[Rfam]
RNA sequence: UGAACAUCCCCGGGGAGCCUGCCGCGAAAUCGCAGGUUGAGAGCGGAAUAGACCGCGACCCGUCGAACCUGAUCCCGGUAAUACGGGCGGAGGGAGGGAGCGGUUUUCGGAA
Numbered sequence: 001u002g003a004a005c006a007u008c009c010c011c012g013g014g015g016a017g018c019c020u021g022c023c024g025c026g027a028a029a030u031c032g033c034a035g036g037u038u039g040a041g042a043g044c045g046g047a048a049u050a051g052a053c054c055g056c057g058a059c060c061c062g063u064c065g066a067a068c069c070u071g072a073u074c075c076c077g078g079u080a081a082u083a084c085g086g087g088c089g090g091a092g093g094g095a096g097g098g099a100g101c102g103g104u105u106u107u108c109g110g111a112a
Stems, first nucleotide, its partner, number of pairs: 007099004011062004017037005044055003068093003074087004
About this RNA: The family of this 112-nucleotide RNA sequence from Citromicrobium sp. RCC1897 is "TPP riboswitch aptamer (THI element)". A search with the family's covariance model found it, with a score of 67 bits. The source organism's lineage runs through Bacteria, Pseudomonadati, Pseudomonadota, Alphaproteobacteria and Citromicrobium.